RNA: Transposase-2 RNA
RNA sequence: GAAGCGCGAACCAAGCAGCCACGCAAGCGGCGUGAGACUUGGAGCGGACGAUCGCAAGACCGUCCUACA
Numbered sequence: 001g002a003a004g005c006g007c008g009a010a011c012c013a014a015g016c017a018g019c020c021a022c023g024c025a026a027g028c029g030g031c032g033u034g035a036g037a038c039u040u041g042g043a044g045c046g047g048a049c050g051a052u053c054g055c056a057a058g059a060c061c062g063u064c065c066u067a068c069a
Base pairs, nucleotide, nucleotide: 011042012041013040014039015038018031019030020029022027046065047064048063049062050061052059053058